[Rfam]
Nucleotides: 079
Base pairs, nucleotide, nucleotide: 003052004051005050006049007048008047009046010045011044012043015040017067018066019065020064021063025036026035027034056074058072059071060070
Number, partner (000 for none) and nucleotide at each position: 001000g002000c003052c004051c005050c006049g007048c008047u009046g010045c011044a012043g013000u014000a015040c016000u017067g018066g019065c020064g021063g022000a023000a024000g025036g026035u027034g028000a029000a030000u031000u032000g033000a034027c035026a036025c037000a038000g039000u040015g041000u042000a043012c044011u045010g046009c047008a048007g049006c050005g051004g052003g053000a054000a055000u056074a057000c058072g059071c060070c061000g062000a063021c064020c065019g066018c067017c068000u069000g070060g071059g072058c073000a074056u075000c076000u077000c078000g079000g